[Rfam]
Nucleotides: 195
Base pairs, nucleotide, nucleotide: 027181029179030178032176035174036173037172038171039170040169041168043166044165045164046163047162048161049160050159051158052157
Number, partner (000 for none) and nucleotide at each position: 001000a002000a003000u004000a005000a006000g007000c008000u009000a010000a011000u012000u013000u014000u015000u016000c017000a018000u019000u020000u021000u022000u023000u024000a025000c026000c027181u028000a029179u030178a031000a032176u033000c034000u035174u036173u037172u038171g039170a040169c041168u042000c043166u044165u045164u046163g047162u048161u049160u050159u051158a052157u053000u054000c055000a056000a057000a058000u059000u060000u061000u062000u063000u064000u065000u066000a067000g068000a069000u070000u071000g072000a073000u074000a075000u076000u077000u078000u079000u080000g081000u082000u083000u084000u085000u086000a087000u088000u089000a090000g091000a092000u093000g094000a095000u096000a097000a098000a099000u100000c101000a102000u103000g104000a105000a106000u107000a108000g109000u110000a111000c112000u113000u114000u115000a116000c117000g118000u119000g120000u121000g122000a123000c124000u125000a126000a127000u128000u129000u130000u131000u132000u133000u134000u135000c136000u137000a138000a139000u140000u141000u142000c143000c144000u145000a146000a147000a148000a149000a150000u151000u152000u153000u154000c155000a156000a157052a158051u159050a160049a161048g162047a163046c164045g165044g166043a167000u168041g169040g170039u171038c172037a173036a174035a175000c176032a177000c178030u179029a180000g181027a182000c183000a184000c185000a186000g187000u188000a189000a190000c191000c192000g193000a194000a195000g
Rfam assigns this 195-nucleotide sequence from Oryza brachyantha to the family "MIR812 microRNA precursor family". Rfam links the family to the GO terms RISC complex and miRNA-mediated post-transcriptional gene silencing. The family's consensus secondary structure was predicted with RNAalifold. Rfam 15.1 lists 57,451 matches to the family in 24 species. NCBI's taxonomy places the organism under Eukaryota, Liliopsida, commelinids, Oryzoideae, Oryza.